[Rfam]
RNA sequence: UUGCCCAUUUAAGACCACUCAUGUCUUAAAUGAUUAACACAGGGGGGUAGAAGAAGUCUCUCAAAAAACCCGAAGUAAAGGCAGAUAUUUCCUUGCUUCGGAUCCUGUCGGGAGAAACAACU
Numbered sequence: 001u002u003g004c005c006c007a008u009u010u011a012a013g014a015c016c017a018c019u020c021a022u023g024u025c026u027u028a029a030a031u032g033a034u035u036a037a038c039a040c041a042g043g044g045g046g047g048u049a050g051a052a053g054a055a056g057u058c059u060c061u062c063a064a065a066a067a068a069c070c071c072g073a074a075g076u077a078a079a080g081g082c083a084g085a086u087a088u089u090u091c092c093u094u095g096c097u098u099c100g101g102a103u104c105c106u107g108u109c110g111g112g113a114g115a116a117a118c119a120a121c122u
Base pairs, nucleotide, nucleotide: 002049003048004047005046006045008043009042010041017035019030058114059113060112061111062110070101071100072099073098074097075096076095079093080092081091083090084089